Rfam assigns this 481-nucleotide part of an RNA to the family "Bacterial large subunit ribosomal RNA". Its family is annotated with ribosome and structural constituent of ribosome in the Gene Ontology. The base pairs follow the family's consensus structure, which is taken from published work.
RNA sequence: AUGAAAAAGGGACUAUCGGGGAUGACUAGCCAAUACAUCCAAAGGAGGUAUUUAUACCAAAAAUCGUAAUGAAUGAUUUGAUAAUUACGAUAAUCCUAAGGGAAACCAAUUAAAUAAUUACUCUACGAACUGAAACAUCUAAGUAGUAGAAGGAAAAGAAAUCAACCGAGAUCUUGUUAGUAGUGGUGAGCGAAAGCAAGUUAGCCUAUUUUUAGUAAGUUUCAAAAAUUAAAAUUUUUGGAACUAAAAUUUAAUUAUAAUUUGUUUGGAAUAACAAACCAUAGAGGGUGAAAGUCCCGUAAUAAAAUAAAUUAGUACUAAAAAAUAAUAAGUAAGAUGAGAGAUAACUUGUCUGAAUAUAGGGGAACCAUCCUCUAAGGCUAAAUAUGAUGUAUUGAGCGAUAGUGAAGAGUACCGUGAGGGAAAGUUGAAAAGAAAGUAGAUAACUGGUGAAAAGAUCCUGAACCGGUAGUUCUAUAAG
Number, nucleotide and partner (000 for none) at each position: 001a000002u000003g000004a000005a000006a000007a000008a000009g476010g475011g474012a473013c472014u471015a470016u469017c468018g467019g000020g000021g000022a000023u000024g461025a428026c427027u000028a000029g400030c399031c397032a396033a395034u394035a393036c392037a391038u389039c000040c000041a000042a000043a097044g096045g095046a094047g058048g057049u056050a000051u000052u000053u000054a000055u000056a049057c048058c047059a000060a000061a000062a000063a000064u090065c089066g088067u087068a086069a085070u084071g000072a000073a078074u000075g000076a000077u000078u073079u000080g000081a000082u000083a000084a070085u069086u068087a067088c066089g065090a064091u000092a000093a000094u046095c045096c044097u043098a000099a000100g107101g106102g000103a000104a000105a000106c101107c100108a000109a000110u000111u000112a000113a000114a000115u000116a000117a000118u000119u000120a000121c152122u150123c149124u148125a147126c146127g000128a000129a000130c000131u000132g139133a138134a000135a000136c000137a000138u133139c132140u000141a000142a000143g000144u000145a000146g126147u125148a124149g123150a122151a000152g121153g000154a000155a000156a000157a000158g000159a000160a000161a000162u169163c168164a000165a000166c000167c000168g163169a162170g000171a000172u385173c200174u199175u198176g197177u196178u000179a000180g000181u000182a000183g191184u190185g000186g000187u000188g000189a000190g184191c183192g000193a000194a000195a000196g177197c176198a175199a174200g173201u000202u000203a382204g381205c380206c379207u000208a000209u000210u000211u233212u232213u231214a230215g229216u228217a000218a000219g000220u000221u000222u000223c000224a000225a000226a000227a000228a216229u215230u214231a213232a212233a211234a326235u325236u324237u323238u322239u000240g000241g000242a000243a000244c000245u000246a319247a000248a000249a316250u315251u314252u000253a312254a000255u310256u309257a308258u307259a000260a303261u302262u277263u276264g275265u274266u273267u000268g000269g000270a000271a000272u000273a266274a265275c264276a263277a262278a000279c000280c284281a000282u000283a000284g280285a000286g298287g297288g296289u000290g000291a000292a000293a000294g000295u000296c288297c287298c286299g000300u000301a000302a261303u260304a000305a000306a000307a258308u257309a256310a255311a000312u253313u000314a251315g250316u249317a000318c000319u246320a000321a000322a238323a237324a236325a235326u234327a000328a000329u000330a000331a000332g000333u000334a000335a354336g353337a352338u351339g350340a349341g348342a000343g000344a000345u000346a000347a000348c341349u340350u339351g338352u337353c336354u335355g000356a000357a000358u000359a000360u000361a376362g375363g374364g373365g372366a000367a000368c000369c000370a000371u000372c365373c364374u363375c362376u361377a000378a000379g206380g205381c204382u203383a000384a000385a172386u000387a000388u000389g038390a000391u037392g036393u035394a034395u033396u032397g031398a000399g030400c029401g000402a000403u000404a000405g000406u000407g000408a000409a000410g000411a000412g000413u000414a000415c422416c421417g000418u000419g000420a000421g416422g415423g000424a000425a000426a000427g026428u025429u000430g000431a000432a000433a000434a000435g000436a000437a000438a448439g447440u446441a000442g000443a000444u000445a000446a440447c439448u438449g000450g000451u000452g000453a000454a000455a000456a000457g000458a000459u000460c000461c024462u000463g000464a000465a000466c000467c018468g017469g016470u015471a014472g013473u012474u011475c010476u009477a000478u000479a000480a000481g000